[Rfam]
RNA sequence: UCCGAAUGGGAAUAAAAAACUAACAUACUAAAAAUUGGAAUACCAAUAAAUCAACGUUUUUCAACUUAUGAAAUGCUUGGUUUUCAUUAAAAAUGAUAUGGUUUCCUACCACAAAUCCCUGUCAAGAUGAUGCUUGACAGGGAUUUUUUU
Numbered sequence: 001u002c003c004g005a006a007u008g009g010g011a012a013u014a015a016a017a018a019a020c021u022a023a024c025a026u027a028c029u030a031a032a033a034a035u036u037g038g039a040a041u042a043c044c045a046a047u048a049a050a051u052c053a054a055c056g057u058u059u060u061u062c063a064a065c066u067u068a069u070g071a072a073a074u075g076c077u078u079g080g081u082u083u084u085c086a087u088u089a090a091a092a093a094u095g096a097u098a099u100g101g102u103u104u105c106c107u108a109c110c111a112c113a114a115a116u117c118c119c120u121g122u123c124a125a126g127a128u129g130a131u132g133c134u135u136g137a138c139a140g141g142g143a144u145u146u147u148u149u150u
Base pairs, nucleotide, nucleotide: 008106009105010104011103012102048083049082050081051080052079053078054077056076057075059073060072061071062070063069084096085095086094087093113146114145115144116143117142118141119140120139121138122137123136124135125134126133